[Rfam]
RNA sequence: GCCGCGCCUACUCCGACGGGAGGAAAACCGGGGAACCCUGCCCGGCUGGCGCGGUGAUCCGUUUCAGGG
Dot-bracket structure: ((((((((..((((....)))).....(((((...[[[[[)))))..)))))))).........]]]]]
This 69-nucleotide RNA sequence from Laribacter hongkongensis belongs to the Rfam family "int-alpA RNA". From the family's description: Acidobacteria (1 example), Planctomycetes (1 example), Proteobacteria. The base pairs follow the family's consensus structure, which is taken from published work.